Overview: The record is a 46-nucleotide RNA from Cytobacillus depressus, which matches "Ribosomal protein L19 leader" in Rfam. Its family is annotated with regulation of gene expression in the Gene Ontology. By type it is a cis-regulatory leader.
RNA sequence: AAGAUGUUCCGCUGCAAUGGAAAGACUAGAUGUGCAUGAGCAUCUG
Numbered sequence: 001a002a003g004a005u006g007u008u009c010c011g012c013u014g015c016a017a018u019g020g021a022a023a024g025a026c027u028a029g030a031u032g033u034g035c036a037u038g039a040g041c042a043u044c045u046g
Stems, first nucleotide, its partner, number of pairs: 003044007013036004
The base pairs follow the family's consensus structure, which was predicted with CMfinder. From the family's description: This family is a putative r-protein leader autoregulatory structure found in B. subtilis and other low-GC Gram-positive bacteria. Lineage of the source: Bacteria > Bacillota > Bacilli > Bacillaceae > Cytobacillus.